[Rfam]
RNA sequence: GGUCCAAAACUGAAGUAGGGUAAAUUAGUGAGGUCAGUUGGUCCUACUAUUCUACUGUACUUCAAAAUUGGGCCC
Numbered sequence: 001g002g003u004c005c006a007a008a009a010c011u012g013a014a015g016u017a018g019g020g021u022a023a024a025u026u027a028g029u030g031a032g033g034u035c036a037g038u039u040g041g042u043c044c045u046a047c048u049a050u051u052c053u054a055c056u057g058u059a060c061u062u063c064a065a066a067a068u069u070g071g072g073c074c075c
Stems, first nucleotide, its partner, number of pairs: 001074007011064007019056004026049005032043004
Rfam assigns this 75-nucleotide RNA from Haemonchus placei to the family "mir-5928 microRNA precursor family". The family has 5 seed sequences and 1,672 matches in Rfam 15.1.